[Rfam]
RNA: skipping-rope RNA
RNA sequence: GGGCUUUGAGGUGGAAAAUUUCGCACGAUCCACACGCCGCUGGUACUGACAGGGGAAACCCGAGAGAUGCAGGAGAAACGUGCGCCUGCCAAAGUCC
Numbered sequence: 001g002g003g004c005u006u007u008g009a010g011g012u013g014g015a016a017a018a019u020u021u022c023g024c025a026c027g028a029u030c031c032a033c034a035c036g037c038c039g040c041u042g043g044u045a046c047u048g049a050c051a052g053g054g055g056a057a058a059c060c061c062g063a064g065a066g067a068u069g070c071a072g073g074a075g076a077a078a079c080g081u082g083c084g085c086c087u088g089c090c091a092a093a094g095u096c097c
Stems, first nucleotide, its partner, number of pairs: 001097008011033005023083005035064001037055002040052003069089005